[Rfam]
A member of the RNA family "Bacterial large subunit ribosomal RNA" from Kumtagia ephedrae, 448 nucleotides of a longer RNA. Its family is annotated with structural constituent of ribosome and ribosome in the Gene Ontology. A reference for the family is Yusupov et al. (2001), "Crystal structure of the ribosome at 5.5 A resolution", Science.
RNA sequence: CUCCGCGAAAUCUAUUUAGGUAGAGCGUCGACCGAAUACCCUGGGGGGUAGAGCACUGGAUGGGCUAGGGGUCCUUACCGGAUUACCAAACCUAACCAAACUCCGAAUACCCAGGAGUACUAGUCGGCAGACACACGGCGGGUGCUAACGUCCGUCGUGGAAAGGGAAACAACCCUGACCAACAGCUAAGGUCCCCAAGUUAUGGCUAAGUGGGAAAGGAUGUGAGGAUCCCAAAACAACCAGGAUGUUGGCUUAGAAGCAGCCAUCAUUUAAAGAAAGCGUAACAGCUCACUGGUCUAAGUAAGGGUCUUUGCGCCGAAAAUGUAACGGGGCUAAAGCCAUACACCGAAGCUUUGGGUUGCGCAGCGAUGCGCAGCGGUAGCGGAGCGUUCCGUAAGCCGAUGAAGCGGUACCCGUGAGGGGCCGUGGAGGUAUCGGAAGUGCGAAU
Numbered sequence: 001c002u003c004c005g006c007g008a009a010a011u012c013u014a015u016u017u018a019g020g021u022a023g024a025g026c027g028u029c030g031a032c033c034g035a036a037u038a039c040c041c042u043g044g045g046g047g048g049u050a051g052a053g054c055a056c057u058g059g060a061u062g063g064g065c066u067a068g069g070g071g072u073c074c075u076u077a078c079c080g081g082a083u084u085a086c087c088a089a090a091c092c093u094a095a096c097c098a099a100a101c102u103c104c105g106a107a108u109a110c111c112c113a114g115g116a117g118u119a120c121u122a123g124u125c126g127g128c129a130g131a132c133a134c135a136c137g138g139c140g141g142g143u144g145c146u147a148a149c150g151u152c153c154g155u156c157g158u159g160g161a162a163a164g165g166g167a168a169a170c171a172a173c174c175c176u177g178a179c180c181a182a183c184a185g186c187u188a189a190g191g192u193c194c195c196c197a198a199g200u201u202a203u204g205g206c207u208a209a210g211u212g213g214g215a216a217a218g219g220a221u222g223u224g225a226g227g228a229u230c231c232c233a234a235a236a237c238a239a240c241c242a243g244g245a246u247g248u249u250g251g252c253u254u255a256g257a258a259g260c261a262g263c264c265a266u267c268a269u270u271u272a273a274a275g276a277a278a279g280c281g282u283a284a285c286a287g288c289u290c291a292c293u294g295g296u297c298u299a300a301g302u303a304a305g306g307g308u309c310u311u312u313g314c315g316c317c318g319a320a321a322a323u324g325u326a327a328c329g330g331g332g333c334u335a336a337a338g339c340c341a342u343a344c345a346c347c348g349a350a351g352c353u354u355u356g357g358g359u360u361g362c363g364c365a366g367c368g369a370u371g372c373g374c375a376g377c378g379g380u381a382g383c384g385g386a387g388c389g390u391u392c393c394g395u396a397a398g399c400c401g402a403u404g405a406a407g408c409g410g411u412a413c414c415c416g417u418g419a420g421g422g423g424c425c426g427u428g429g430a431g432g433u434a435u436c437g438g439a440a441g442u443g444c445g446a447a448u
Stems, first nucleotide, its partner, number of pairs: 001387006011024005026130001027128006036121001040115006051104001052102002057098003061094004068087002070084005134159010164175003179357004184353003190347003199344001201343006218317002222314010239296005245269003250264003270274001275290001279288002358377008388443001390440005398433003407427005413422003